Source information: Rfam assigns this 120-nucleotide RNA from Nitzschia inconspicua to the family "Small nucleolar RNA SNORA11". The match comes from Rfam's covariance-model search (49 bits). Pairs were carried over by alignment from the consensus structure, which was predicted with RNAalifold. About the family: U107 (SNORA11) is a member of the H/ACA class of snoRNAs that guide the sites of modification of uridines to pseudouridines. This snoRNA was identified by RT-PCR from blood cells and its expression confirmed by Northern blot analysis. There is no predicted target for this guide snRNA. On this family, see Gu et al., Nucleic Acids Res 2005: "A novel experimental approach for systematic identification of box H/ACA snoRNAs from eukaryotes".
RNA sequence: UGGGCGCUUUCGAAAGCGCCCAUAAAAAAUAUGGGCGCUUUCGAAAGCGCCUAUAAAAAAUAUGGGCGCUUUCGAAAGCGCCCAAAAAAAAUAUGGGCGCUUUCGAAACCGCCCAUAAAU
Numbered sequence: 001u002g003g004g005c006g007c008u009u010u011c012g013a014a015a016g017c018g019c020c021c022a023u024a025a026a027a028a029a030u031a032u033g034g035g036c037g038c039u040u041u042c043g044a045a046a047g048c049g050c051c052u053a054u055a056a057a058a059a060a061u062a063u064g065g066g067c068g069c070u071u072u073c074g075a076a077a078g079c080g081c082c083c084a085a086a087a088a089a090a091a092u093a094u095g096g097g098c099g100c101u102u103u104c105g106a107a108a109c110c111g112c113c114c115a116u117a118a119a120u
Stems, first nucleotide, its partner, number of pairs: 002052007013041009065113004072106003077102002079099003083095002086092001